[Rfam]
RNA: mir-395 microRNA precursor family
RNA sequence: GUCUUACCAUGGGUUCCUUUCAAGCACUUCACGAGCAUUCCUUCAAAUGCCAUUGUGAAGUGUUUGGGGGAACUCUUGGUGAUGC
Numbered sequence: 001g002u003c004u005u006a007c008c009a010u011g012g013g014u015u016c017c018u019u020u021c022a023a024g025c026a027c028u029u030c031a032c033g034a035g036c037a038u039u040c041c042u043u044c045a046a047a048u049g050c051c052a053u054u055g056u057g058a059a060g061u062g063u064u065u066g067g068g069g070g071a072a073c074u075c076u077u078g079g080u081g082a083u084g085c
Stems, first nucleotide, its partner, number of pairs: 005081005011075010022065013